[Rfam]
RNA sequence: CUAUAGAAACAACGCCGAGCUUAAUGACCUAAGGUCAUCCCGACUAUGGCAUUAAGCCAAUGGGUCUGUUUGGAAAUGAACAGGCCUCCCGGAUUGGAAAGGUGUUUUAUGCUGGUUGAA
Numbered sequence: 001c002u003a004u005a006g007a008a009a010c011a012a013c014g015c016c017g018a019g020c021u022u023a024a025u026g027a028c029c030u031a032a033g034g035u036c037a038u039c040c041c042g043a044c045u046a047u048g049g050c051a052u053u054a055a056g057c058c059a060a061u062g063g064g065u066c067u068g069u070u071u072g073g074a075a076a077u078g079a080a081c082a083g084g085c086c087u088c089c090c091g092g093a094u095u096g097g098a099a100a101g102g103u104g105u106u107u108u109a110u111g112c113u114g115g116u117u118g119a120a
Base pairs, nucleotide, nucleotide: 011106012105013104014103015102016101019057020056021055022054023053024052025051026050028049029048033045034044035043036042062087063086064085065084066083067082068081069080070079071078072077088097089096